[Rfam]
RNA sequence: AAAACUUAGGUACAAUUCCUUAGGUGCUUUUUGUAUGGUUCUUUACUAAAUUUACCAUGAUUUCCUCAAAUGCAUAAUUUUCUCAAAGUUUGUUAUAUCCAAAUAAUAUGUAUUUUUAGUUAAGAACCAUAUGAAAAGCACAUAAGGAAUUGUACCUAAGUUUU
Numbered sequence: 001a002a003a004a005c006u007u008a009g010g011u012a013c014a015a016u017u018c019c020u021u022a023g024g025u026g027c028u029u030u031u032u033g034u035a036u037g038g039u040u041c042u043u044u045a046c047u048a049a050a051u052u053u054a055c056c057a058u059g060a061u062u063u064c065c066u067c068a069a070a071u072g073c074a075u076a077a078u079u080u081u082c083u084c085a086a087a088g089u090u091u092g093u094u095a096u097a098u099c100c101a102a103a104u105a106a107u108a109u110g111u112a113u114u115u116u117u118a119g120u121u122a123a124g125a126a127c128c129a130u131a132u133g134a135a136a137a138g139c140a141c142a143u144a145a146g147g148a149a150u151u152g153u154a155c156c157u158a159a160g161u162u163u164u
Base pairs, nucleotide, nucleotide: 002163003162004161005160006159007158008157010155011154012153013152015150016149017148018147019146020145021144022143024141025140027138028137029136030135031134032133033132034131035130036129037128038127039126040125041124042123043122045120046119047118048117049116050115
The family of this 164-nucleotide RNA sequence from Medicago truncatula is "MIR2606 microRNA precursor family". The base pairs follow the family's consensus structure, which was predicted with RNAalifold. Lineage of the source: Eukaryota > Viridiplantae > eudicotyledons > Gunneridae > Medicago.